[Rfam]
RNA sequence: ACUCGUUCGGGCGAGUAUAAAAAGAGAUUAAGCCCGAAGCGUCUCGCCAGUCUUAGGGGUAAUUUUGGCGGGGGUUCUA
Dot-bracket structure: [[[[.((((((.]]]]........[[[....[)))))).].((((((((................))))))))..]]].